skipping-rope RNA: an 80-nucleotide RNA sequence from Blautia obeum.
[Rfam]
RNA sequence: AAAAUCUGAGGACGGAACAGGCAGCCGUCGCGCCAUAUGGGUCUUAAAAGAGAUGUAGGAUUGUCACCCUACCUAUUUUA
Number, nucleotide and partner (000 for none) at each position: 001a079002a078003a077004a076005u075006c000007u000008g073009a000010g000011g029012a028013c027014g026015g025016a000017a000018c000019a000020g065021g064022c063023a062024g000025c015026c014027g013028u012029c011030g000031c050032g000033c040034c039035a000036u000037a000038u000039g034040g033041g000042u000043c000044u000045u000046a000047a000048a000049a000050g031051a000052g000053a000054u000055g072056u071057a070058g069059g068060a000061u000062u023063g022064u021065c020066a000067c000068c059069c058070u057071a056072c055073c008074u000075a005076u004077u003078u002079u001080a000

About this RNA:
Taxonomically the source falls in Blautia obeum (Bacteria, Bacillota, Lachnospirales, Lachnospiraceae). The family's RNA type in Rfam is small RNA.